[Rfam]
RNA sequence: UUGUAAAGGUAUGUUUGGCUGUAGAGCUUAUUCCUUAUAUUGUGUAUGUGAGGGCAUAUUGAAGAA
Numbered sequence: 001u002u003g004u005a006a007a008g009g010u011a012u013g014u015u016u017g018g019c020u021g022u023a024g025a026g027c028u029u030a031u032u033c034c035u036u037a038u039a040u041u042g043u044g045u046a047u048g049u050g051a052g053g054g055c056a057u058a059u060u061g062a063a064g065a066a
Base pairs, nucleotide, nucleotide: 008060009059010058011057012056013055014030017028018027019026020025033053034052035051036050037049038048039047040046
The family of this 66-nucleotide RNA is "S4-Fusobacteriales ribosomal protein leader".
The family is grouped with related families in Rfam's "Ribosomal Protein S4 Leader clan".